A member of the RNA family "Fluoride riboswitch aptamer (crcB RNA motif)", 80 nucleotides long. Pairs were carried over by alignment from the consensus structure, which is taken from published work. Rfam links the family to the GO terms response to fluoride and positive regulation of gene expression. The match comes from Rfam's covariance-model search (52 bits). A reference for the family is Baker et al. (2012), "Widespread genetic switches and toxicity resistance proteins for fluoride", Science.
RNA sequence: CUCGCCCACGGAGAUGGCGUCCUCCGCGGACUAACGUCCUAACCGCCCGAGUUGUGAGGGCUGAUGACGCCUAUCUUACA
Numbered sequence: 001c002u003c004g005c006c007c008a009c010g011g012a013g014a015u016g017g018c019g020u021c022c023u024c025c026g027c028g029g030a031c032u033a034a035c036g037u038c039c040u041a042a043c044c045g046c047c048c049g050a051g052u053u054g055u056g057a058g059g060g061c062u063g064a065u066g067a068c069g070c071c072u073a074u075c076u077u078a079c080a
Base pairs, nucleotide, nucleotide: 010025011024012023013022016071017070018069019068020067021066045061046060047059048058